Proteobacterial sRNA psRNA2: a 188-nucleotide sequence from Nitrosomonas europaea.
RNA sequence: GGAUUACUCCUUUACGCUUUCGCGUUUGGUUGAUAAAGAUUCGCACCUCUAUCAAACCGGGUAAUCCCACCUCUUGGCAAGACCUGCUGUCAGAUCAAAUCUGAACUACUACAUAUUAGGGUAGUCUGAUGUGCAGUCGAGUCGGUAUUCAUGGACAGUAUUCCGCUUUUCCAGAGAAGGAAAAGUCU
Numbered sequence: 001g002g003a004u005u006a007c008u009c010c011u012u013u014a015c016g017c018u019u020u021c022g023c024g025u026u027u028g029g030u031u032g033a034u035a036a037a038g039a040u041u042c043g044c045a046c047c048u049c050u051a052u053c054a055a056a057c058c059g060g061g062u063a064a065u066c067c068c069a070c071c072u073c074u075u076g077g078c079a080a081g082a083c084c085u086g087c088u089g090u091c092a093g094a095u096c097a098a099a100u101c102u103g104a105a106c107u108a109c110u111a112c113a114u115a116u117u118a119g120g121g122u123a124g125u126c127u128g129a130u131g132u133g134c135a136g137u138c139g140a141g142u143c144g145g146u147a148u149u150c151a152u153g154g155a156c157a158g159u160a161u162u163c164c165g166c167u168u169u170u171c172c173a174g175a176g177a178a179g180g181a182a183a184a185g186u187c188u
Stems, first nucleotide, its partner, number of pairs: 001067007009060002014025004028058004032053004037048002075145001077143001081138002084136002089106002091103005108132002113127001165186008
Notes: It is annotated as a small RNA. Lineage of the source: Bacteria > Pseudomonadati > Pseudomonadota > Nitrosomonadales > Nitrosomonas europaea. The pairing is the family consensus, mapped onto this sequence.